[Rfam]
RNA sequence: GGCGGUUCUCGGGGGACACACCCCGGAAUCGGGCUCCCUCCUCUUAGGUUCCGGGUGUGUCACCCGAGAACCGCA
Numbered sequence: 001g002g003c004g005g006u007u008c009u010c011g012g013g014g015g016a017c018a019c020a021c022c023c024c025g026g027a028a029u030c031g032g033g034c035u036c037c038c039u040c041c042u043c044u045u046a047g048g049u050u051c052c053g054g055g056u057g058u059g060u061c062a063c064c065c066g067a068g069a070a071c072c073g074c075a
Stems, first nucleotide, its partner, number of pairs: 002074002005071009015061003019057005025052006032045002
Shown here is a 75-nucleotide sequence from Myotis brandtii, a member of the family "mir-9223 microRNA precursor family". The family's consensus secondary structure was predicted with RNAalifold. Taxonomically the source falls in Myotis (Eukaryota, Deuterostomia, Sarcopterygii, Mammalia). A search with the family's covariance model found it, with a score of 84 bits.